[Rfam]
RNA sequence: AAUGUUUUGGCUGUAGAAAUCCUGGAAUCUUAUCAAUUUUUUGUUGUCAGCUUCAUCUCUUUAAUAUUCCAUGAGAAUGGAGUUAAAUGACACUACCAUGG
Numbered sequence: 001a002a003u004g005u006u007u008u009g010g011c012u013g014u015a016g017a018a019a020u021c022c023u024g025g026a027a028u029c030u031u032a033u034c035a036a037u038u039u040u041u042u043g044u045u046g047u048c049a050g051c052u053u054c055a056u057c058u059c060u061u062u063a064a065u066a067u068u069c070c071a072u073g074a075g076a077a078u079g080g081a082g083u084u085a086a087a088u089g090a091c092a093c094u095a096c097c098a099u100g101g
Stems, first nucleotide, its partner, number of pairs: 040095001042092002049084006056076004
RNA: Small nucleolar RNA snoR97
Organism: Juglans regia